[Rfam]
RNA sequence: GUAGUAUCGGACAAAUCGGAUUGUUAUCCGAUCGGGUAUUGUAUACCCCAAUCAAUUAGU
Numbered sequence: 001g002u003a004g005u006a007u008c009g010g011a012c013a014a015a016u017c018g019g020a021u022u023g024u025u026a027u028c029c030g031a032u033c034g035g036g037u038a039u040u041g042u043a044u045a046c047c048c049c050a051a052u053c054a055a056u057u058a059g060u
Base pairs, nucleotide, nucleotide: 006032007031008030009029010028011027034048035047036046037045038044039043
Overview: The record is a 60-nucleotide sequence, which matches "S4-Clostridia ribosomal protein leader" in Rfam. A reference for the family is Eckert and Weinberg (2020), "Discovery of 20 novel ribosomal leader candidates in bacteria and archaea", BMC Microbiol. Clan: Ribosomal Protein S4 Leader clan. It is one of the family's seed sequences.